Alphaproteobacteria transfer-messenger RNA: a 378-nucleotide RNA sequence from Methyloligella sp. GL2. Its Rfam clan is "tRNA clan". Lineage of the source: Bacteria > Pseudomonadota > Alphaproteobacteria > Hyphomicrobiaceae > Methyloligella. A search with the family's covariance model found it, with a score of 304 bits.

RNA sequence: AACCUUUUUUUCCCCGCCGGAAGGGCAUAUAUAUGAAAUGUCGAUGCAAAUCGACUAUGGCGAUAAAUGGCCUUCGUAAUAAGCCUAUCGGACCCGGGGGCGGUACCCGGCGCCUCCACCAAAUUCCAGACUGCCAUGGGGAAGCAUCCCUUGGAUCUGGAAUCCGGCGGGGGCGAAAUAGGAUCGACGAGGGUGUAAAGGUUGAGCUUUCGCUCGGCAUGGUUCCGCCGUUAUCGGGCCAUUCAAUAGUUGCAAACGACAACUAUGCCGAGGCAGCUCUCGCUGCGUAAGCAGUGCGAUAGCCUCAAAUUCAAGCCCUAACCGGUCGCACGGUUAGGCGCGGUUUCGGAGGGCACCGGGCAACAGAAGCCCUCCACU
Numbered sequence: 001a002a003c004c005u006u007u008u009u010u011u012c013c014c015c016g017c018c019g020g021a022a023g024g025g026c027a028u029a030u031a032u033a034u035g036a037a038a039u040g041u042c043g044a045u046g047c048a049a050a051u052c053g054a055c056u057a058u059g060g061c062g063a064u065a066a067a068u069g070g071c072c073u074u075c076g077u078a079a080u081a082a083g084c085c086u087a088u089c090g091g092a093c094c095c096g097g098g099g100g101c102g103g104u105a106c107c108c109g110g111c112g113c114c115u116c117c118a119c120c121a122a123a124u125u126c127c128a129g130a131c132u133g134c135c136a137u138g139g140g141g142a143a144g145c146a147u148c149c150c151u152u153g154g155a156u157c158u159g160g161a162a163u164c165c166g167g168c169g170g171g172g173g174c175g176a177a178a179u180a181g182g183a184u185c186g187a188c189g190a191g192g193g194u195g196u197a198a199a200g201g202u203u204g205a206g207c208u209u210u211c212g213c214u215c216g217g218c219a220u221g222g223u224u225c226c227g228c229c230g231u232u233a234u235c236g237g238g239c240c241a242u243u244c245a246a247u248a249g250u251u252g253c254a255a256a257c258g259a260c261a262a263c264u265a266u267g268c269c270g271a272g273g274c275a276g277c278u279c280u281c282g283c284u285g286c287g288u289a290a291g292c293a294g295u296g297c298g299a300u301a302g303c304c305u306c307a308a309a310u311u312c313a314a315g316c317c318c319u320a321a322c323c324g325g326u327c328g329c330a331c332g333g334u335u336a337g338g339c340g341c342g343g344u345u346u347c348g349g350a351g352g353g354c355a356c357c358g359g360g361c362a363a364c365a366g367a368a369g370c371c372c373u374c375c376a377c378u
Stems, first nucleotide, its partner, number of pairs: 040055005059214005069207001072204001075201001084193003088190003094110005111175007215230004220241003224238003341358004348375006

Rfam describes the family as follows. Bacterial tmRNA, also known as 10Sa RNA or SsrA, is named for its dual tRNA and mRNA-like properties. Its role is to liberate the mRNA from a stalled ribosome. To accomplish this part of the tmRNA is used as a reading frame that ends in a translation stop signal. The broken mRNA is replaced in the ribosome by the tmRNA and translation of the tmRNA leads to addition of a proteolysis tag to the incomplete protein enabling recognition by a protease. Recently a number of permuted tmRNA genes have been found encoded in two parts. tmRNAs have been identified in eubacteria and some chloroplasts but are absent from archaeal and eukaryote nuclear genomes.